[Rfam]
RNA sequence: AAAGUCCAUUGCGAUGAAGGUGUAGCGAACCACAUCGGCCCCGAGCCGUGCGCAGGCGUCCGCGAGGGUGUCGGCGAAGCGUCGGUAGGGGAGCAUGCAGGCCAGCCAUUGAGCCGCGAAACAGUGUUAUCUCGGGAGCCGACGCUGUCCAAAGAGCGGAAGGCAACAUGGAUGAGUGCGCAAUUGCGAGCACCCGUCCAACCCGGCGUGGUCGUAGACCC
Numbered sequence: 001a002a003a004g005u006c007c008a009u010u011g012c013g014a015u016g017a018a019g020g021u022g023u024a025g026c027g028a029a030c031c032a033c034a035u036c037g038g039c040c041c042c043g044a045g046c047c048g049u050g051c052g053c054a055g056g057c058g059u060c061c062g063c064g065a066g067g068g069u070g071u072c073g074g075c076g077a078a079g080c081g082u083c084g085g086u087a088g089g090g091g092a093g094c095a096u097g098c099a100g101g102c103c104a105g106c107c108a109u110u111g112a113g114c115c116g117c118g119a120a121a122c123a124g125u126g127u128u129a130u131c132u133c134g135g136g137a138g139c140c141g142a143c144g145c146u147g148u149c150c151a152a153a154g155a156g157c158g159g160a161a162g163g164c165a166a167c168a169u170g171g172a173u174g175a176g177u178g179c180g181c182a183a184u185u186g187c188g189a190g191c192a193c194c195c196g197u198c199c200a201a202c203c204c205g206g207c208g209u210g211g212u213c214g215u216a217g218a219c220c221c
Base pairs, nucleotide, nucleotide: 012037013036014035015034016033019031020030021029023189025187026186039091040090041089042088045086046085047084048083049081050080051076052075053074055072056071057070058069059068060067061066111213113212114211115210116209117208118207132206133205134204135203136202138164139163140162143158144157145156146155169200170199171198172197173196174195176193177192178191179190
Rfam assigns this 221-nucleotide RNA sequence from Bradyrhizobium diazoefficiens to the family "Group II catalytic intron D1-D4-6". The pairing is the family consensus, mapped onto this sequence.